The record is a 189-nucleotide sequence from Oryza sativa, which matches "MIR812 microRNA precursor family" in Rfam. A search with the family's covariance model found it, with a score of 139 bits. The organism belongs to Oryza sativa, within Eukaryota. Pairs were carried over by alignment from the consensus structure, which was predicted with RNAalifold. Gene Ontology terms of the family: miRNA-mediated post-transcriptional gene silencing and RISC complex.

[Rfam]
RNA sequence: AAAAUGGUAAACUAUGGGUUUCCGUAUCCAACUUUGACUGUCCGUUUUAUAUGAAAUUUUUUUAUAAUUCGUAUUUUCAUUGUUGUUAGAUGAUAAAAUAUGAUUAAUAUUUUAUGCGCGACUUGUCUUUUUAAUUUUUUUUAUAAAUUUUUUAAAUGAAACGGACGGUCAAAUAUUGGACACGGAAAC
Number, nucleotide and partner (000 for none) at each position: 001a000002a000003a000004a000005u000006g000007g000008u000009a000010a000011a000012c000013u000014a000015u000016g000017g000018g000019u000020u000021u000022c000023c000024g000025u000026a000027u180028c179029c178030a177031a176032c000033u173034u172035u171036g170037a169038c168039u167040g166041u165042c164043c163044g162045u161046u160047u159048u158049a157050u156051a000052u000053g000054a000055a000056a000057u000058u000059u000060u000061u000062u000063u000064a000065u000066a000067a000068u000069u000070c000071g000072u000073a000074u000075u000076u000077u000078c000079a000080u000081u000082g000083u000084u000085g000086u000087u000088a000089g000090a000091u000092g000093a000094u000095a000096a000097a000098a000099u000100a000101u000102g000103a000104u000105u000106a000107a000108u000109a000110u000111u000112u000113u000114a000115u000116g000117c000118g000119c000120g000121a000122c000123u000124u000125g000126u000127c000128u000129u000130u000131u000132u000133a000134a000135u000136u000137u000138u000139u000140u000141u000142u000143a000144u000145a000146a000147a000148u000149u000150u000151u000152u000153u000154a000155a000156a050157u049158g048159a047160a046161a045162c044163g043164g042165a041166c040167g039168g038169u037170c036171a035172a034173a033174u000175a000176u031177u030178g029179g028180a027181c000182a000183c000184g000185g000186a000187a000188a000189c000